Notes: Antisense RNA which regulates isiA expression: a 178-nucleotide RNA from Cyanomargarita calcarea. The base pairs follow the family's consensus structure, which was predicted with PFOLD. The family has 308 seed sequences and 3,397 matches in Rfam 15.1. For this family Rfam cites "An internal antisense RNA regulates expression of the photosynthesis gene isiA" (Duhring et al., Proc Natl Acad Sci U S A, 2006). The source organism's lineage runs through Bacteria, Bacillati, Cyanomargaritaceae, Cyanomargarita and Cyanomargarita calcarea.

RNA sequence: AAUAACCAAAGAUUAUUUCUGGGUCGAGAGUGGGAUUACUAAUGAUGCGAACAUCUCCAAUACUACUAUCAUAAAUUCCCCCAAAAUACAUUGCCUUGAGUACUAGGAGAAAUGCACCCAAUCCCAAAACAAUUAAAUGAUGUCCUAAAAUUAAACCUAAUUGCUUCGGGUCAUUCCA
Number, nucleotide and partner (000 for none) at each position: 001a000002a000003u000004a000005a000006c000007c000008a000009a000010a000011g000012a000013u000014u000015a000016u000017u000018u000019c000020u000021g000022g000023g000024u000025c000026g000027a000028g000029a000030g000031u000032g000033g000034g000035a000036u000037u000038a000039c000040u000041a000042a000043u000044g000045a000046u000047g000048c000049g000050a000051a000052c000053a000054u000055c000056u000057c000058c000059a000060a000061u000062a000063c000064u000065a000066c000067u000068a000069u000070c000071a000072u000073a000074a000075a000076u000077u000078c000079c000080c000081c000082c000083a000084a000085a000086a000087u000088a000089c000090a000091u000092u000093g000094c000095c000096u000097u000098g000099a000100g000101u000102a000103c000104u000105a000106g000107g000108a000109g000110a000111a000112a000113u000114g000115c000116a000117c000118c000119c000120a000121a000122u000123c000124c000125c000126a000127a000128a000129a000130c000131a000132a000133u000134u000135a000136a175137a174138u173139g172140a171141u170142g000143u000144c169145c168146u000147a166148a165149a000150a000151u000152u000153a000154a000155a000156c000157c000158u000159a000160a000161u000162u000163g000164c000165u148166u147167c000168g145169g144170g141171u140172c139173a138174u137175u136176c000177c000178a000